Background:
Shown here is an 81-nucleotide RNA sequence from Alligator sinensis, a member of the family "Mammalian CPEB3 ribozyme". Pairs were carried over by alignment from the consensus structure, which is taken from published work.
RNA sequence: AGAGGUCACAUGUUUGAGGCCACAGCAGAAUCACUCAUGGGGCAGACCCUUUCAGAUUCCAACCAAUCUGUGAAUUCUGCU
Numbered sequence: 001a002g003a004g005g006u007c008a009c010a011u012g013u014u015u016g017a018g019g020c021c022a023c024a025g026c027a028g029a030a031u032c033a034c035u036c037a038u039g040g041g042g043c044a045g046a047c048c049c050u051u052u053c054a055g056a057u058u059c060c061a062a063c064c065a066a067u068c069u070g071u072g073a074a075u076u077c078u079g080c081u
Stems, first nucleotide, its partner, number of pairs: 016049001018047001020045001024081007032042001053070006
The match comes from Rfam's covariance-model search (37 bits). Rfam links the family to the GO term RNA nuclease activity.